[Rfam]
The family of this 59-nucleotide RNA sequence from Anaeromassilibacillus sp. An200 is "Streptococcus sRNA SpF59 (ldcC RNA)". Lineage of the source: Bacteria > Bacillota > Eubacteriales > Acutalibacteraceae > Anaeromassilibacillus. It is annotated as a small RNA. The base pairs follow the family's consensus structure, which was predicted with mfold. A search with the family's covariance model found it, with a score of 68 bits.

RNA sequence: CGACCACCUGAGUGUUUUUCUCAGGUCAAGGCCAUACGGACAGCCGGGUCAACUGCCGA
Number, nucleotide and partner (000 for none) at each position: 001c000002g050003a049004c048005c047006a026007c025008c024009u023010g022011a021012g000013u000014g000015u000016u000017u000018u000019u000020c000021u011022c010023a009024g008025g007026u006027c000028a000029a000030g000031g000032c000033c000034a000035u000036a000037c000038g000039g000040a000041c000042a000043g000044c000045c000046g000047g005048g004049u003050c002051a000052a000053c000054u000055g000056c000057c000058g000059a000